Rfam assigns this 61-nucleotide RNA sequence from Aminipila butyrica to the family "Fluoride riboswitch aptamer (crcB RNA motif)". NCBI's taxonomy places the organism under Bacteria, Bacillati, Clostridia, Peptostreptococcales, Aminipila. The family's consensus secondary structure is taken from published work.
[Rfam]
RNA sequence: AUAGUAAACGGCGAUGGAGUUCGCCUUUAAGUGCUGCUAAGCUAAUGACUCCUACAAGCGU
Numbered sequence: 001a002u003a004g005u006a007a008a009c010g011g012c013g014a015u016g017g018a019g020u021u022c023g024c025c026u027u028u029a030a031g032u033g034c035u036g037c038u039a040a041g042c043u044a045a046u047g048a049c050u051c052c053u054a055c056a057a058g059c060g061u
Stems, first nucleotide, its partner, number of pairs: 010025004016052006033042003